The family of this 431-nucleotide part of an RNA from Emiliania huxleyi is "Eukaryotic large subunit ribosomal RNA".
[Rfam]
RNA sequence: CGCCAUCGAAUGAGGCAAGACUACCCGCUGAACUUAAGCAUAUCACUAAGCGGAGGAGAAGAAACUAACCAGGAUGCCCCUAGUAAUGGCGAAUGAAGCGGGCUGAGCUCACGCUGCCAAUCUGGAGGCCUCGCGUAUGCAGCGCCCCCCGAAUUGUGGUCUAGAGAGGCGUUAUCGGCCGCGCCCGCCGCUCAAGUCCCUUGGAACAGGGUGUCGGAGAGGGUGAGAAUCCCGUACCGUGGCGGGUUGCGGCCUUACGAUGCGUCCUCGUCGAGUCGGGUUGCUUGGGAUUGCAGCUUGAAUUGGGUGGUAAAUUCCAUCUAAAGCUAAAUACUGGCGAGAGACCGAUAGCGAACAAGUACCGUGAGGGAAAGAUGCAAAGAACUUUGAAAAGAGAGUCAAAGAGUGCUUGAAAUCGGUAGGAGGAAACC
Numbered sequence: 001c002g003c004c005a006u007c008g009a010a011u012g013a014g015g016c017a018a019g020a021c022u023a024c025c026c027g028c029u030g031a032a033c034u035u036a037a038g039c040a041u042a043u044c045a046c047u048a049a050g051c052g053g054a055g056g057a058g059a060a061g062a063a064a065c066u067a068a069c070c071a072g073g074a075u076g077c078c079c080c081u082a083g084u085a086a087u088g089g090c091g092a093a094u095g096a097a098g099c100g101g102g103c104u105g106a107g108c109u110c111a112c113g114c115u116g117c118c119a120a121u122c123u124g125g126a127g128g129c130c131u132c133g134c135g136u137a138u139g140c141a142g143c144g145c146c147c148c149c150c151g152a153a154u155u156g157u158g159g160u161c162u163a164g165a166g167a168g169g170c171g172u173u174a175u176c177g178g179c180c181g182c183g184c185c186c187g188c189c190g191c192u193c194a195a196g197u198c199c200c201u202u203g204g205a206a207c208a209g210g211g212u213g214u215c216g217g218a219g220a221g222g223g224u225g226a227g228a229a230u231c232c233c234g235u236a237c238c239g240u241g242g243c244g245g246g247u248u249g250c251g252g253c254c255u256u257a258c259g260a261u262g263c264g265u266c267c268u269c270g271u272c273g274a275g276u277c278g279g280g281u282u283g284c285u286u287g288g289g290a291u292u293g294c295a296g297c298u299u300g301a302a303u304u305g306g307g308u309g310g311u312a313a314a315u316u317c318c319a320u321c322u323a324a325a326g327c328u329a330a331a332u333a334c335u336g337g338c339g340a341g342a343g344a345c346c347g348a349u350a351g352c353g354a355a356c357a358a359g360u361a362c363c364g365u366g367a368g369g370g371a372a373a374g375a376u377g378c379a380a381a382g383a384a385c386u387u388u389g390a391a392a393a394g395a396g397a398g399u400c401a402a403a404g405a406g407u408g409c410u411u412g413a414a415a416u417c418g419g420u421a422g423g424a425g426g427a428a429a430c431c
Base pairs, nucleotide, nucleotide: 024055025053026052027051028050029049035042036041065072066071076103077102078101079100086094087093106328107327108326109325113160114159115158116157117156119154121152122151124149125148127146128145129144166269167268168266169265170264171263173262174261175260176259178253179252180251181250182249183248186244187243188242189241190240191239196212198211199210200209201208215219222232223231278299279298280297281296282295283294284293305322306321307320308319309318362369363368385396386395387394388393

The match comes from Rfam's covariance-model search (3078 bits).